About this RNA
This 76-nucleotide RNA sequence from Baryphthengus martii belongs to the Rfam family "mir-202 microRNA precursor family".
RNA sequence: UUGUUCCUUUUUCCUAUGCGUAUACUUCUUUGAGAAUUGAAUCCAAAGACGUAUAGGGCAUGGGAAAACGGUGCGA
Numbered sequence: 001u002u003g004u005u006c007c008u009u010u011u012u013c014c015u016a017u018g019c020g021u022a023u024a025c026u027u028c029u030u031u032g033a034g035a036a037u038u039g040a041a042u043c044c045a046a047a048g049a050c051g052u053a054u055a056g057g058g059c060a061u062g063g064g065a066a067a068a069c070g071g072u073g074c075g076a
Base pairs, nucleotide, nucleotide: 010067011066012065013064014063015062016061017060018059019058021055022054023053025051027049028048029047030046031045032044
Rfam links the family to the GO terms miRNA-mediated post-transcriptional gene silencing and RISC complex. The base pairs follow the family's consensus structure, which was predicted with RNAalifold.